[Rfam]
RNA sequence: UGGAGAACCAUCAUUGAGUGCAGCGUUGAUGAAAUCUUAUAUUUUAUGUUAUCAACUGCUACCAGCCCUUUAUGGAGCUUGGCAUCAUUUCACCAGCGCUGCAUUCAAUCAUGUUUUUC
Numbered sequence: 001u002g003g004a005g006a007a008c009c010a011u012c013a014u015u016g017a018g019u020g021c022a023g024c025g026u027u028g029a030u031g032a033a034a035u036c037u038u039a040u041a042u043u044u045u046a047u048g049u050u051a052u053c054a055a056c057u058g059c060u061a062c063c064a065g066c067c068c069u070u071u072a073u074g075g076a077g078c079u080u081g082g083c084a085u086c087a088u089u090u091c092a093c094c095a096g097c098g099c100u101g102c103a104u105u106c107a108a109u110c111a112u113g114u115u116u117u118u119c
Stems, first nucleotide, its partner, number of pairs: 006116002009113003013109016030092005
Dot-bracket structure: .....((.(((.((((((((((((((((.(((((.....................................................))))).)))))))))))))))).))).))...

Annotation:
MIR397 microRNA precursor family: a 119-nucleotide RNA from Salix dunnii. Rfam 15.1 lists 496 matches to the family in 218 species. Lineage of the source: Eukaryota > Streptophyta > Spermatophyta > Malpighiales > Salix. On this family, see Mica et al., BMC Genomics 2009: "High throughput approaches reveal splicing of primary microRNA transcripts and tissue specific expression of mature microRNAs in Vitis vinifera".